[Rfam]
RNA sequence: AAAUAUUUUUUCGAUAUAAAACACUCAUGUUGAUAAAAUUAUUUGGGCCCCUU
Numbered sequence: 001a002a003a004u005a006u007u008u009u010u011u012c013g014a015u016a017u018a019a020a021a022c023a024c025u026c027a028u029g030u031u032g033a034u035a036a037a038a039u040u041a042u043u044u045g046g047g048c049c050c051c052u053u
Base pairs, nucleotide, nucleotide: 011033012032013031014030015029016028017027
RNA: Plastid-atpF group II-D1 intron